The record is a 339-nucleotide RNA from Fusibacter sp. A1, which matches "Bacterial RNase P class A" in Rfam. Rfam classes the family as a ribozyme. A search with the family's covariance model found it, with a score of 286 bits. The family's consensus secondary structure is taken from published work.
[Rfam]
RNA sequence: UGAGUAAGCCAGAUGAUCGCACAGGCAACUGUGAGGAAAGUCCGAGCUCCGUAGAGCAGGGUGCUGGGUAAUACCCAGUGGAGGCAACUUCAAGGAUAGUGCAACAGAGAGAUACCGCCUGAUUUAUCAGGUAAGGGUGGAAAGGCGAGGUAAGAGCUCACCAGCAUGCAGGUGACUGCAUGGCUAUGUAAACCCCACCUGGAGCAAGACCAAGCAGGGAUAUAAAAGAGCGGCUGCUCGUCGCUUCCCGUAGGUAGGUCGCUAGAGCCCGGAUGGCAACAACGGGCCCAGAUAGAUGAUCGUCUAAUACAGAACUCGGCUUAUAGGUUUGCUCACAAC
Numbered sequence: 001u002g003a004g005u006a007a008g009c010c011a012g013a014u015g016a017u018c019g020c021a022c023a024g025g026c027a028a029c030u031g032u033g034a035g036g037a038a039a040g041u042c043c044g045a046g047c048u049c050c051g052u053a054g055a056g057c058a059g060g061g062u063g064c065u066g067g068g069u070a071a072u073a074c075c076c077a078g079u080g081g082a083g084g085c086a087a088c089u090u091c092a093a094g095g096a097u098a099g100u101g102c103a104a105c106a107g108a109g110a111g112a113u114a115c116c117g118c119c120u121g122a123u124u125u126a127u128c129a130g131g132u133a134a135g136g137g138u139g140g141a142a143a144g145g146c147g148a149g150g151u152a153a154g155a156g157c158u159c160a161c162c163a164g165c166a167u168g169c170a171g172g173u174g175a176c177u178g179c180a181u182g183g184c185u186a187u188g189u190a191a192a193c194c195c196c197a198c199c200u201g202g203a204g205c206a207a208g209a210c211c212a213a214g215c216a217g218g219g220a221u222a223u224a225a226a227a228g229a230g231c232g233g234c235u236g237c238u239c240g241u242c243g244c245u246u247c248c249c250g251u252a253g254g255u256a257g258g259u260c261g262c263u264a265g266a267g268c269c270c271g272g273a274u275g276g277c278a279a280c281a282a283c284g285g286g287c288c289c290a291g292a293u294a295g296a297u298g299a300u301c302g303u304c305u306a307a308u309a310c311a312g313a314a315c316u317c318g319g320c321u322u323a324u325a326g327g328u329u330u331g332c333u334c335a336c337a338a339c
Stems, first nucleotide, its partner, number of pairs: 001335010011324001012304007020033005038322003042319005047204004054239004059200005064078005079093001080091004094195002099193002101189003115136002117132006144162002147159003164184001165182007208260004218248003230244005267287004272283001274281002